[Rfam]
Shown here is a 66-nucleotide RNA sequence from Actinacidiphila alni, a member of the family "Fluoride riboswitch aptamer (crcB RNA motif)". A search with the family's covariance model found it, with a score of 49 bits. Lineage of the source: Bacteria > Actinomycetes > Kitasatosporales > Streptomycetaceae > Actinacidiphila.
RNA sequence: UGGGACCCAGGCGAUGAGGCUCGCCUUCAACCGCGGUUGUGCGCCGCUGAUGGCUUCUACCGACAA
Numbered sequence: 001u002g003g004g005a006c007c008c009a010g011g012c013g014a015u016g017a018g019g020c021u022c023g024c025c026u027u028c029a030a031c032c033g034c035g036g037u038u039g040u041g042c043g044c045c046g047c048u049g050a051u052g053g054c055u056u057c058u059a060c061c062g063a064c065a066a
Stems, first nucleotide, its partner, number of pairs: 010025004016057006033047004